Rfam assigns this 135-nucleotide RNA sequence from Callorhinchus milii to the family "Small nucleolar RNA SNORA49". It scores 57 bits against the family's covariance model. Pairs were carried over by alignment from the consensus structure, which was predicted with RNAalifold. Rfam's curators write: The snoRNA ACA49 has no identified RNA target. NB genomic sequence 1-nt different from published.
[Rfam]
RNA sequence: AUCCCCAACCUUACUAUGGGCACAAGCAACAAAAUCUUGUGUACUGACAUUGUGUUGGGGUAGAUUAAAAAGCCUCUUCCCUCCCCAGCAAGAAUCGAUUUGUAUUCUCUGGGGCCUGCAUUGUGGGUUAACAAU
Numbered sequence: 001a002u003c004c005c006c007a008a009c010c011u012u013a014c015u016a017u018g019g020g021c022a023c024a025a026g027c028a029a030c031a032a033a034a035u036c037u038u039g040u041g042u043a044c045u046g047a048c049a050u051u052g053u054g055u056u057g058g059g060g061u062a063g064a065u066u067a068a069a070a071a072g073c074c075u076c077u078u079c080c081c082u083c084c085c086c087a088g089c090a091a092g093a094a095u096c097g098a099u100u101u102g103u104a105u106u107c108u109c110u111g112g113g114g115c116c117u118g119c120a121u122u123g124u125g126g127g128u129u130a131a132c133a134a135u
Stems, first nucleotide, its partner, number of pairs: 003060007010052001017046003022040005071129003074125001083114006090108001092106002